The family of this 115-nucleotide sequence from Bacillus sp. DNRA2 is "TPP riboswitch aptamer (THI element)". The base pairs follow the family's consensus structure, which is taken from published work. Gene Ontology term of the family: thiamine pyrophosphate binding. Lineage of the source: Bacteria > Bacillota > Caryophanales > Bacillaceae > Bacillus.
RNA sequence: UAUACAAACUAGGGGUGUCCAAUUAGUUGGGCUGAGAGAGGAACACGUUAAAGUGCCUUAACCCUCAGGACCUGAUCUGGUUCAUACCAGCGUGGGGAAGUUAGAAUUCAUAGAU
Numbered sequence: 001u002a003u004a005c006a007a008a009c010u011a012g013g014g015g016u017g018u019c020c021a022a023u024u025a026g027u028u029g030g031g032c033u034g035a036g037a038g039a040g041g042a043a044c045a046c047g048u049u050a051a052a053g054u055g056c057c058u059u060a061a062c063c064c065u066c067a068g069g070a071c072c073u074g075a076u077c078u079g080g081u082u083c084a085u086a087c088c089a090g091c092g093u094g095g096g097g098a099a100g101u102u103a104g105a106a107u108u109c110a111u112a113g114a115u
Base pairs, nucleotide, nucleotide: 007102008101009100010099011065012064013063014062017032018031019030020029021028039058040057041056043054071096072095073094074093077090078089079088080087